[Rfam]
RNA: c-di-GMP-I-GGC riboswitch aptamer
Organism: Virgibacillus oceani
RNA sequence: UCAGCAAAAGGCAAACCUAUCGAAAGCUGGGGGCGCAAAGUCACAGGUCUUCCAUUGAUAUAAUGAUGACGGCUGGGCUGCCUGAG
Numbered sequence: 001u002c003a004g005c006a007a008a009a010g011g012c013a014a015a016c017c018u019a020u021c022g023a024a025a026g027c028u029g030g031g032g033g034c035g036c037a038a039a040g041u042c043a044c045a046g047g048u049c050u051u052c053c054a055u056u057g058a059u060a061u062a063a064u065g066a067u068g069a070c071g072g073c074u075g076g077g078c079u080g081c082c083u084g085a086g
Stems, first nucleotide, its partner, number of pairs: 001086001003083002011036002016031004021026001034072001039079004044075003047070003